[Rfam]
RNA sequence: UGCCCUUGUGUUGCCCAUUCAUUGGAUUCAGCAGAUGAAUGUGGUGUCAGACAGGGCAUACAGAAACUUUUGCACAGCUUUCAUUGCCUUGCUGAAGUGCUGCUCUGUGCCUUGGUACUAGAUUGUUGUGCAAAGACAUAA
Numbered sequence: 001u002g003c004c005c006u007u008g009u010g011u012u013g014c015c016c017a018u019u020c021a022u023u024g025g026a027u028u029c030a031g032c033a034g035a036u037g038a039a040u041g042u043g044g045u046g047u048c049a050g051a052c053a054g055g056g057c058a059u060a061c062a063g064a065a066a067c068u069u070u071u072g073c074a075c076a077g078c079u080u081u082c083a084u085u086g087c088c089u090u091g092c093u094g095a096a097g098u099g100c101u102g103c104u105c106u107g108u109g110c111c112u113u114g115g116u117a118c119u120a121g122a123u124u125g126u127u128g129u130g131c132a133a134a135g136a137c138a139u140a141a
Stems, first nucleotide, its partner, number of pairs: 002057005009049002012046004016041008069134010084121002087115002091110001
RNA: Small nucleolar RNA SNORA13